[Rfam]
RNA: mir-H5 microRNA precursor family
Organism: Simplexvirus humanalpha2
RNA sequence: CCGCUCCUGCGGGGGGGCUCGGGCCACCUGACCUUCGUAACCUGCACUCAGGUCAGAGCCCCAGACCCCCCGCGGGCGC
Numbered sequence: 001c002c003g004c005u006c007c008u009g010c011g012g013g014g015g016g017g018c019u020c021g022g023g024c025c026a027c028c029u030g031a032c033c034u035u036c037g038u039a040a041c042c043u044g045c046a047c048u049c050a051g052g053u054c055a056g057a058g059c060c061c062c063a064g065a066c067c068c069c070c071c072g073c074g075g076g077c078g079c
Base pairs, nucleotide, nucleotide: 003079004078006076007075008074009073010072011071012070013069014068015067016066018064019063021062022061023060025058027056030054031053032052033051034050037047038046